[Rfam]
RNA sequence: CUGCACGUAGCCUCCCGGGCUCAUCUCAGUUUAUUUAUAAUGAAGUUAGAUGCCCCAAAGCUCGUGCUAUACUUAACCGCCGCUAGUGUUGCAGUUUAGCCCCUUUGUACCUUUCUUAUCCAUGGCUAUUUUGUGUCAAAUCAACGGCAAAAUUC
Numbered sequence: 001c002u003g004c005a006c007g008u009a010g011c012c013u014c015c016c017g018g019g020c021u022c023a024u025c026u027c028a029g030u031u032u033a034u035u036u037a038u039a040a041u042g043a044a045g046u047u048a049g050a051u052g053c054c055c056c057a058a059a060g061c062u063c064g065u066g067c068u069a070u071a072c073u074u075a076a077c078c079g080c081c082g083c084u085a086g087u088g089u090u091g092c093a094g095u096u097u098a099g100c101c102c103c104u105u106u107g108u109a110c111c112u113u114u115c116u117u118a119u120c121c122a123u124g125g126c127u128a129u130u131u132u133g134u135g136u137c138a139a140a141u142c143a144a145c146g147g148c149a150a151a152a153u154u155c
Stems, first nucleotide, its partner, number of pairs: 003067005010061002017055004022049001025045002079148004084143001087138002090135005099126003
A member of the RNA family "small nucleolar RNA snoR134" from Capsicum annuum, 155 nucleotides long. Rfam classes the family as an H/ACA-box small nucleolar RNA. Rfam links the family to the GO terms RNA processing and nucleolus.